RNA sequence: GGUUUCCGAUACUGCAAAUCCAAUCUUGGAAUUUAAGAUGAAAAAAAAUUCCUCAUUGGUAGCAAAAGCUUAUCCGUUAAGCGGGGAAAAUCCUAU
Numbered sequence: 001g002g003u004u005u006c007c008g009a010u011a012c013u014g015c016a017a018a019u020c021c022a023a024u025c026u027u028g029g030a031a032u033u034u035a036a037g038a039u040g041a042a043a044a045a046a047a048a049u050u051c052c053u054c055a056u057u058g059g060u061a062g063c064a065a066a067a068g069c070u071u072a073u074c075c076g077u078u079a080a081g082c083g084g085g086g087a088a089a090a091u092c093c094u095a096u
Stems, first nucleotide, its partner, number of pairs: 010022001051086004055077002058074005
The record is a 96-nucleotide RNA from Gossypium schwendimanii, which matches "Plastid-rps12 3UTR RNA" in Rfam. Plastid rpl20 is a non-coding RNA (ncRNA) recognised in plastids. It scores 78 bits against the family's covariance model.